RNA sequence: GGGUCAUUUCAAAGAGGGCUCCUGAGGCUAUAAAACCAGGAGCUCUUACGCAGUGACCGAAGACUGAAGUUCUCUAUAGGAUGCCAUAGUUGCUCAGUAAUAGCACUAUGUUUUCCUGGGGAGAUACAAGA
Numbered sequence: 001g002g003g004u005c006a007u008u009u010c011a012a013a014g015a016g017g018g019c020u021c022c023u024g025a026g027g028c029u030a031u032a033a034a035a036c037c038a039g040g041a042g043c044u045c046u047u048a049c050g051c052a053g054u055g056a057c058c059g060a061a062g063a064c065u066g067a068a069g070u071u072c073u074c075u076a077u078a079g080g081a082u083g084c085c086a087u088a089g090u091u092g093c094u095c096a097g098u099a100a101u102a103g104c105a106c107u108a109u110g111u112u113u114u115c116c117u118g119g120g121g122a123g124a125u126a127c128a129a130g131a
Stems, first nucleotide, its partner, number of pairs: 002058006014047008023039001026037002071124005078117004086109004091105004
Shown here is a 131-nucleotide RNA from Tupaia belangeri, a member of the family "Small nucleolar RNA SNORA25". Pairs were carried over by alignment from the consensus structure, which was predicted with RNAfold. ACA25 is a member of the H/ACA class of snoRNA that guide the sites of modification of uridines to pseudouridines. The sequence is in the family's curated seed alignment. Taxonomically the source falls in Tupaia (Eukaryota, Opisthokonta, Chordata, Amniota).